[Rfam]
RNA sequence: CCCAAUGGUUGUCAGCUAUCCAGGCUAGCACGAUGCCUGUGAUGGUGUUACACUGUUGGAAGAGCAAGCGCUGCCCAGUGGGGUCUGGCUCCAAGCGCUCUUUCCGUGGUGUGGUCACGUACCUUUGGGCAGCGUUUUGCACCUAUGAGAGUGGAAUGACUUCUCCUGUGGAGUUGGUCCUAGUCUGGAUGCAAACAUU
Numbered sequence: 001c002c003c004a005a006u007g008g009u010u011g012u013c014a015g016c017u018a019u020c021c022a023g024g025c026u027a028g029c030a031c032g033a034u035g036c037c038u039g040u041g042a043u044g045g046u047g048u049u050a051c052a053c054u055g056u057u058g059g060a061a062g063a064g065c066a067a068g069c070g071c072u073g074c075c076c077a078g079u080g081g082g083g084u085c086u087g088g089c090u091c092c093a094a095g096c097g098c099u100c101u102u103u104c105c106g107u108g109g110u111g112u113g114g115u116c117a118c119g120u121a122c123c124u125u126u127g128g129g130c131a132g133c134g135u136u137u138u139g140c141a142c143c144u145a146u147g148a149g150a151g152u153g154g155a156a157u158g159a160c161u162u163c164u165c166c167u168g169u170g171g172a173g174u175u176g177g178u179c180c181u182a183g184u185c186u187g188g189a190u191g192c193a194a195a196c197a198u199u
Stems, first nucleotide, its partner, number of pairs: 002059008011051002015046006021039005068135009080125005086117005092111002096108003137194005143188002153180003157176007